[Rfam]
RNA sequence: CCUCUAUUCUUGGCAUGCACACGUUUUCCUCGUGUGUUAUGGAGGAACAAAAUGCCAAGUGCUAUGUCUUCAGUACCAGCAUGUUUCUCGUUUUCUGGUUCUAUCCUCAAUCACUGGUACACUA
Numbered sequence: 001c002c003u004c005u006a007u008u009c010u011u012g013g014c015a016u017g018c019a020c021a022c023g024u025u026u027u028c029c030u031c032g033u034g035u036g037u038u039a040u041g042g043a044g045g046a047a048c049a050a051a052a053u054g055c056c057a058a059g060u061g062c063u064a065u066g067u068c069u070u071c072a073g074u075a076c077c078a079g080c081a082u083g084u085u086u087c088u089c090g091u092u093u094u095c096u097g098g099u100u101c102u103a104u105c106c107u108c109a110a111u112c113a114c115u116g117g118u119a120c121a122c123u124a
Base pairs, nucleotide, nucleotide: 001045002044003043004042005041014036015035016034017033018032058115059114060113061112076098077097078096079095081093083092